The family of this 61-nucleotide RNA from Jatropha curcas is "Plastid-psbN 5UTR RNA".
By type it is a cis-regulatory element.
Pairs were carried over by alignment from the consensus structure, which was predicted with LocARNA.
Plastid psbN is a non-coding RNA (ncRNA) recognised in plastids.
On this family, see Zhelyazkova et al., Plant Cell 2012: "The primary transcriptome of barley chloroplasts: numerous noncoding RNAs and the dominating role of the plastid-encoded RNA polymerase".
RNA sequence: UGCAACACCCAUCAAGAGAGUGGGUCCCAAUACAGGAGCUACUUUACCAUAUUUCAAAUUC
Numbered sequence: 001u002g003c004a005a006c007a008c009c010c011a012u013c014a015a016g017a018g019a020g021u022g023g024g025u026c027c028c029a030a031u032a033c034a035g036g037a038g039c040u041a042c043u044u045u046a047c048c049a050u051a052u053u054u055c056a057a058a059u060u061c
Stems, first nucleotide, its partner, number of pairs: 017045007025037003